Rfam assigns this 100-nucleotide RNA sequence from Gracilibacillus thailandensis to the family "Glycine riboswitch aptamer".
RNA sequence: AUGAUUAUUAUGGGAGAGCGUAUUGAUUACCACCGAAGGAGCAAGUUCAUAAAAAAUCCUUAUGAACCAAUCUCUCAGGUUAAAGUACCAUAAUAGGACG
Numbered sequence: 001a002u003g004a005u006u007a008u009u010a011u012g013g014g015a016g017a018g019c020g021u022a023u024u025g026a027u028u029a030c031c032a033c034c035g036a037a038g039g040a041g042c043a044a045g046u047u048c049a050u051a052a053a054a055a056a057u058c059c060u061u062a063u064g065a066a067c068c069a070a071u072c073u074c075u076c077a078g079g080u081u082a083a084a085g086u087a088c089c090a091u092a093a094u095a096g097g098a099c100g
Stems, first nucleotide, its partner, number of pairs: 006095008020030003032080003035076002039074003045067008
Dot-bracket structure: .....((((((((......(((.....))).(((((..(((...((((((((.......))))))))....))))).))).......)))))))).....
The source organism's lineage runs through Bacteria, Bacillati, Bacilli, Bacillaceae and Gracilibacillus.